RNA sequence: ACCAUUCAUAUCCUGGAGAGUGUUCUUAAUAGUCUGUUAUUAUUACACAAACUUUGGGAAUACUUUCGAGAUAUGAUGG
Numbered sequence: 001a002c003c004a005u006u007c008a009u010a011u012c013c014u015g016g017a018g019a020g021u022g023u024u025c026u027u028a029a030u031a032g033u034c035u036g037u038u039a040u041u042a043u044u045a046c047a048c049a050a051a052c053u054u055u056g057g058g059a060a061u062a063c064u065u066u067c068g069a070g071a072u073a074u075g076a077u078g079g
Stems, first nucleotide, its partner, number of pairs: 002079004007075001009073004014069001019064011031053003035049003038045002

mir-2582 microRNA precursor family: a 79-nucleotide sequence from Drosophila simulans. It is one of the family's seed sequences.